[Rfam]
Rfam assigns this 83-nucleotide RNA sequence from Leishmania braziliensis to the family "Trypanosomatid small nucleolar RNA 2". It is annotated as a C/D-box small nucleolar RNA. Its family is annotated with nucleolus and RNA processing in the Gene Ontology. For this family Rfam cites "Characterization of a novel trypanosomatid small nucleolar RNA" (Levitan et al., Nucleic Acids Res, 1998). The base pairs follow the family's consensus structure, which was predicted with RNAfold.
RNA sequence: GUAAAUGAUGAUGCGUGUAUUCUGCAAUGCGGACCCCACUGACGAGGAUCAAUACUACUACAAUGACUAUUGGCAUCUGACCA
Numbered sequence: 001g002u003a004a005a006u007g008a009u010g011a012u013g014c015g016u017g018u019a020u021u022c023u024g025c026a027a028u029g030c031g032g033a034c035c036c037c038a039c040u041g042a043c044g045a046g047g048a049u050c051a052a053u054a055c056u057a058c059u060a061c062a063a064u065g066a067c068u069a070u071u072g073g074c075a076u077c078u079g080a081c082c083a
Stems, first nucleotide, its partner, number of pairs: 010077005021033005036047002039044001050072005